[Rfam]
RNA sequence: GCCGCUCUGAAAAGCGAUUCUUCGAAUCCGCCGACGGUGAAAGCCGGGCCUGUGCGCCCGGUGAAGCUCUCAGGCCCAUGACAGAGGGGGAGUU
Number, nucleotide and partner (000 for none) at each position: 001g000002c089003c088004g000005c086006u085007c084008u083009g082010a000011a000012a000013a000014g000015c000016g028017a027018u026019u025020c000021u000022u000023c000024g000025a019026a018027u017028c016029c000030g075031c074032c073033g071034a070035c000036g000037g069038u000039g067040a000041a000042a000043g062044c061045c060046g059047g058048g057049c000050c000051u000052g000053u000054g000055c000056g000057c048058c047059c046060g045061g044062u043063g000064a000065a000066g000067c039068u000069c037070u034071c033072a000073g032074g031075c030076c000077c000078a000079u000080g000081a000082c009083a008084g007085a006086g005087g000088g003089g002090g000091a000092g000093u000094u000

The family of this 94-nucleotide sequence from Microbacterium saccharophilum is "Glycine riboswitch aptamer". Rfam links the family to the GO term glycine biosynthetic process. Lineage of the source: Bacteria > Bacillati > Actinomycetota > Microbacteriaceae > Microbacterium. A search with the family's covariance model found it, with a score of 42 bits.